[Rfam]
RNA sequence: CCUUCUGUGGUUCGCAAACCUCCCACAAUAAAAAACUAAGGAAUC
Numbered sequence: 001c002c003u004u005c006u007g008u009g010g011u012u013c014g015c016a017a018a019c020c021u022c023c024c025a026c027a028a029u030a031a032a033a034a035a036c037u038a039a040g041g042a043a044u045c
Stems, first nucleotide, its partner, number of pairs: 006027005016037001